ZMP/ZTP riboswitch aptamer (pfl RNA motif): an 85-nucleotide RNA sequence from Nocardia sp. SYP-A9097. Gene Ontology terms of the family: one-carbon metabolic process and regulation of purine nucleotide biosynthetic process. The family's consensus secondary structure is taken from published work. A search with the family's covariance model found it, with a score of 44 bits. The source organism's lineage runs through Bacteria, Bacillati, Actinomycetes, Mycobacteriales and Nocardia.
[Rfam]
RNA sequence: UCGGCUCACCGCGACUGGCGCACUCGAGGUGGAAGUAACCACCGGGAAGCACCGAAGUCCCGCACCGCGCGCCUGGGUGCUGGGC
Numbered sequence: 001u002c003g004g005c006u007c008a009c010c011g012c013g014a015c016u017g018g019c020g021c022a023c024u025c026g027a028g029g030u031g032g033a034a035g036u037a038a039c040c041a042c043c044g045g046g047a048a049g050c051a052c053c054g055a056a057g058u059c060c061c062g063c064a065c066c067g068c069g070c071g072c073c074u075g076g077g078u079g080c081u082g083g084g085c
Base pairs, nucleotide, nucleotide: 003058006055007054011050012049015046016045017073018072019071020070021069029042030041031040032039062080063079064078065077066076